Rfam assigns this 48-nucleotide sequence from Aphananthe aspera to the family "Plastid-rpl16 group II-D1 intron".
On this family, see Richter et al., Plant Commun 2023: "Retrograde signaling in plants: A critical review focusing on the GUN pathway and beyond".
RNA sequence: AAGAGCCACGGGUCAAUAAAGACUGAGAGGGUUGACUCAAGAACAAAU
Numbered sequence: 001a002a003g004a005g006c007c008a009c010g011g012g013u014c015a016a017u018a019a020a021g022a023c024u025g026a027g028a029g030g031g032u033u034g035a036c037u038c039a040a041g042a043a044c045a046a047a048u
Stems, first nucleotide, its partner, number of pairs: 007041001010038008

Plastid-rpl16 is a non-coding RNA (ncRNA) recognised in plastids. It was recognised in and intronic region of a ribosome rpl16 gene. Its family is annotated with Group II intron splicing in the Gene Ontology. The sequence is in the family's curated seed alignment. The family has 538 seed sequences and 1,446 matches in Rfam 15.1.